[Rfam]
RNA sequence: UGGCGGGGAAGCACCACAAGGGGUGAAGCCUGCGGUUCAAUUGGACUCAACGCCGGGAAACUUACCGGGGGCGACAGCAGAAUGAAGGUCAGGCUGACGACCUUACCAGACAAGCUGAGCGGAGGUGCAUGGCCGUCGCCAGUUCGUGCCGUGAGGUGUCCUGUUAAGUCAGGCAACGAACGAGACCCACACGCUUAGUUGCCAUCAAAAGCCCUUACGGGUUUGUUGGGAACGCUAAGCGGACUGCCACCAUAUAGGUGGAGGAAGGAGUGGGCCACGGCAGGUCAGUAUGCCCCUAAUCCCCCGGGCCACACGCGGGCUGCAAUGGUAUGGACAAUGGGUCGCAACUCUGAAAAGAGAAGCCAAUCUCGAAACCAUAUCUCAGUUGGGAUUGUCGGCUGUAACUCGCCGACAUGAACGUGGAAUCCCUAGUAAUCGUGUGUCAUCAUCGCACGGUGAAUACGUCUCUGCUUCUUGCACACACCGCCCGUCGCUCCAUCCGAGUGUAGUAUAGUUGAAAAACGGUCCUAAGGGUCGUUUUAAAAUUGUGCUGCGUGAGGAGGGUGAAGUCGUAACAAGG
Numbered sequence: 001u002g003g004c005g006g007g008g009a010a011g012c013a014c015c016a017c018a019a020g021g022g023g024u025g026a027a028g029c030c031u032g033c034g035g036u037u038c039a040a041u042u043g044g045a046c047u048c049a050a051c052g053c054c055g056g057g058a059a060a061c062u063u064a065c066c067g068g069g070g071g072c073g074a075c076a077g078c079a080g081a082a083u084g085a086a087g088g089u090c091a092g093g094c095u096g097a098c099g100a101c102c103u104u105a106c107c108a109g110a111c112a113a114g115c116u117g118a119g120c121g122g123a124g125g126u127g128c129a130u131g132g133c134c135g136u137c138g139c140c141a142g143u144u145c146g147u148g149c150c151g152u153g154a155g156g157u158g159u160c161c162u163g164u165u166a167a168g169u170c171a172g173g174c175a176a177c178g179a180a181c182g183a184g185a186c187c188c189a190c191a192c193g194c195u196u197a198g199u200u201g202c203c204a205u206c207a208a209a210a211g212c213c214c215u216u217a218c219g220g221g222u223u224u225g226u227u228g229g230g231a232a233c234g235c236u237a238a239g240c241g242g243a244c245u246g247c248c249a250c251c252a253u254a255u256a257g258g259u260g261g262a263g264g265a266a267g268g269a270g271u272g273g274g275c276c277a278c279g280g281c282a283g284g285u286c287a288g289u290a291u292g293c294c295c296c297u298a299a300u301c302c303c304c305c306g307g308g309c310c311a312c313a314c315g316c317g318g319g320c321u322g323c324a325a326u327g328g329u330a331u332g333g334a335c336a337a338u339g340g341g342u343c344g345c346a347a348c349u350c351u352g353a354a355a356a357g358a359g360a361a362g363c364c365a366a367u368c369u370c371g372a373a374a375c376c377a378u379a380u381c382u383c384a385g386u387u388g389g390g391a392u393u394g395u396c397g398g399c400u401g402u403a404a405c406u407c408g409c410c411g412a413c414a415u416g417a418a419c420g421u422g423g424a425a426u427c428c429c430u431a432g433u434a435a436u437c438g439u440g441u442g443u444c445a446u447c448a449u450c451g452c453a454c455g456g457u458g459a460a461u462a463c464g465u466c467u468c469u470g471c472u473u474c475u476u477g478c479a480c481a482c483a484c485c486g487c488c489c490g491u492c493g494c495u496c497c498a499u500c501c502g503a504g505u506g507u508a509g510u511a512u513a514g515u516u517g518a519a520a521a522a523c524g525g526u527c528c529u530a531a532g533g534g535u536c537g538u539u540u541u542a543a544a545a546u547u548g549u550g551c552u553g554c555g556u557g558a559g560g561a562g563g564g565u566g567a568a569g570u571c572g573u574a575a576c577a578a579g580g
Stems, first nucleotide, its partner, number of pairs: 001481002003478003007475007016465002020429005025323001027321008035312002041056004065307007075117004080111001087107003091103003121296002124294004130290002132285003135281004142181006148157003160173004187273004192241007202230002206228003209224006244264002247261005327381007339370003344363002348359004388419001393414007435457008484579001486576001489572002492569001494566001496564002499561003504556013519541010
Background
The record is a 580-nucleotide part of an RNA from Promethearchaeum syntrophicum, which matches "Archaeal small subunit ribosomal RNA" in Rfam. The literature on the family includes a 2002 paper in BMC Bioinformatics by Cannone et al., "The comparative RNA web (CRW) site: an online database of comparative sequence and structure information for ribosomal, intron, and other RNAs". The source organism's lineage runs through Archaea, Promethearchaeati, Promethearchaeia, Promethearchaeales and Promethearchaeum. Rfam links the family to the GO terms structural constituent of ribosome and ribosome.